[Rfam]
RNA sequence: AUGAUAGUUGUGCCGAAUCCCUGACAUUCAGGGUACGGGGGAUCCCGCCCAGCGGGCGGGUAGGUGAAUCUGGCCAAACCAGUAGGGGGCUCCUUCUCCCCCGAACCACGGGAAACCGUUAACUAACCUCGGAGGCAGAUCGCAGAAGGAAG
Numbered sequence: 001a002u003g004a005u006a007g008u009u010g011u012g013c014c015g016a017a018u019c020c021c022u023g024a025c026a027u028u029c030a031g032g033g034u035a036c037g038g039g040g041g042a043u044c045c046c047g048c049c050c051a052g053c054g055g056g057c058g059g060g061u062a063g064g065u066g067a068a069u070c071u072g073g074c075c076a077a078a079c080c081a082g083u084a085g086g087g088g089g090c091u092c093c094u095u096c097u098c099c100c101c102c103g104a105a106c107c108a109c110g111g112g113a114a115a116c117c118g119u120u121a122a123c124u125a126a127c128c129u130c131g132g133a134g135g136c137a138g139a140u141c142g143c144a145g146a147a148g149g150a151a152g
Stems, first nucleotide, its partner, number of pairs: 011137004019033006036131005045058001059117003070082004085102004
The family of this 152-nucleotide sequence from Sulfobacillus acidophilus is "c-di-AMP riboswitch aptamer (ydaO/yuaA leader)". Gene Ontology terms of the family: regulation of gene expression and cyclic-di-AMP binding. The source organism's lineage runs through Bacteria, Bacillati, Eubacteriales, Sulfobacillus and Sulfobacillus acidophilus.